RNA sequence: CCCUUAUUCAGAGUGGUGGAGGUACAAAGGACCUGUGAAGCCACGGCAACCCCGGUUGAGCGCCGAGUGCGCGAGAGAGCCGGAAGGUGCCAACCUGAGCGAGGAGCGGCUGAGAACAACCGGCGCGCUUGAUCGAGCAAUAAGAG
Number, nucleotide and partner (000 for none) at each position: 001c146002c000003c144004u143005u142006a141007u140008u139009c000010a000011g000012a000013g044014u043015g042016g041017u040018g000019g000020a000021g033022g032023u031024a000025c000026a000027a000028a000029g000030g096031a023032c022033c021034u000035g000036u000037g000038a000039a000040g017041c016042c015043a014044c013045g091046g090047c089048a088049a000050c087051c086052c083053c082054g081055g080056u079057u078058g000059a000060g000061c000062g000063c000064c000065g000066a000067g000068u000069g000070c000071g000072c000073g000074a000075g000076a000077g000078a057079g056080c055081c054082g053083g052084a000085a000086g051087g050088u048089g047090c046091c045092a000093a000094c000095c000096u030097g000098a000099g000100c135101g134102a133103g000104g000105a000106g000107c000108g000109g000110c000111u000112g000113a000114g000115a000116a000117c000118a000119a000120c000121c000122g000123g000124c000125g000126c000127g000128c000129u000130u000131g000132a000133u102134c101135g100136a000137g000138c000139a008140a007141u006142a005143a004144g003145a000146g001
SAM riboswitch aptamer (S box leader): a 146-nucleotide sequence from Enterocloster lavalensis. A search with the family's covariance model found it, with a score of 64 bits. The organism belongs to Enterocloster, within Bacteria.